[Rfam]
RNA sequence: AAAAAGUGCUAGGGGUGCCUUAGGCUGAGAAAUGAAGUUUAUUAUUCUUCAUAAACCCUUAUACCUGAUCUGGAUAAUACCAGCGUAGGAAAAGCGAUUUAUAUGCAAU
Numbered sequence: 001a002a003a004a005a006g007u008g009c010u011a012g013g014g015g016u017g018c019c020u021u022a023g024g025c026u027g028a029g030a031a032a033u034g035a036a037g038u039u040u041a042u043u044a045u046u047c048u049u050c051a052u053a054a055a056c057c058c059u060u061a062u063a064c065c066u067g068a069u070c071u072g073g074a075u076a077a078u079a080c081c082a083g084c085g086u087a088g089g090a091a092a093a094g095c096g097a098u099u100u101a102u103a104u105g106c107a108a109u
Base pairs, nucleotide, nucleotide: 007096008095009094010093011059012058013057014056016053017025018024019023032052033051034050035049036048064089065088066087067086070083071082072081073080
RNA: TPP riboswitch aptamer (THI element)
Organism: Clostridium ljungdahlii